[Rfam]
RNA sequence: ACUAAUAGAGCUAGUAAGUACUCUUUUGAUUAGAAAGUUUAGGUAAUCUUAUUAAACUUUGUUAUAUUAGGGAUAAAGUAUUAUAAUUAUUACUUUUUAACAAAGA
Numbered sequence: 001a002c003u004a005a006u007a008g009a010g011c012u013a014g015u016a017a018g019u020a021c022u023c024u025u026u027u028g029a030u031u032a033g034a035a036a037g038u039u040u041a042g043g044u045a046a047u048c049u050u051a052u053u054a055a056a057c058u059u060u061g062u063u064a065u066a067u068u069a070g071g072g073a074u075a076a077a078g079u080a081u082u083a084u085a086a087u088u089a090u091u092a093c094u095u096u097u098u099a100a101c102a103a104a105g106a
Stems, first nucleotide, its partner, number of pairs: 004063007016050003024043002028039004070101001075096006